This 70-nucleotide RNA from Rodentolepis nana belongs to the Rfam family "HDV ribozyme from F. prausnitzii". The source organism's lineage runs through Eukaryota, Protostomia, Spiralia, Neodermata and Rodentolepis.
RNA sequence: GGUGUGCGAUAGGCCCACCUCCACGUGGUACACACUGGGCAACGUAUACUCAUACGGCAAAAAAGUCUAU
Numbered sequence: 001g002g003u004g005u006g007c008g009a010u011a012g013g014c015c016c017a018c019c020u021c022c023a024c025g026u027g028g029u030a031c032a033c034a035c036u037g038g039g040c041a042a043c044g045u046a047u048a049c050u051c052a053u054a055c056g057g058c059a060a061a062a063a064a065g066u067c068u069a070u
Stems, first nucleotide, its partner, number of pairs: 001036006017029003043056005
Dot-bracket structure: ((((((..........(((.......))).))))))......(((((....)))))..............